Source information:
Rfam assigns this 132-nucleotide RNA sequence from Nakamurella panacisegetis to the family "ALIL pseudoknot". The family's RNA type in Rfam is cis-regulatory element. Pairs were carried over by alignment from the consensus structure, which is taken from published work. The literature on the family includes a 2008 paper in J Biol Chem by Mazauric et al., "Apical loop-internal loop RNA pseudoknots: a new type of stimulator of -1 translational frameshifting in bacteria".

RNA sequence: AGCCAGUUUCUUCGGGGCGGAGCUCGACCGCCAACACAAGAAGUAGUCGCGUUCAUCGACGCCAACCGCGCCGAGUUCGGAGUCGAGCCGAUCAUCACCACGCUGGCCAGCGCCGAGGUGACGAUCGCUCCG
Numbered sequence: 001a002g003c004c005a006g007u008u009u010c011u012u013c014g015g016g017g018c019g020g021a022g023c024u025c026g027a028c029c030g031c032c033a034a035c036a037c038a039a040g041a042a043g044u045a046g047u048c049g050c051g052u053u054c055a056u057c058g059a060c061g062c063c064a065a066c067c068g069c070g071c072c073g074a075g076u077u078c079g080g081a082g083u084c085g086a087g088c089c090g091a092u093c094a095u096c097a098c099c100a101c102g103c104u105g106g107c108c109a110g111c112g113c114c115g116a117g118g119u120g121a122c123g124a125u126c127g128c129u130c131c132g
Stems, first nucleotide, its partner, number of pairs: 016032005078132005089127002092124002095121004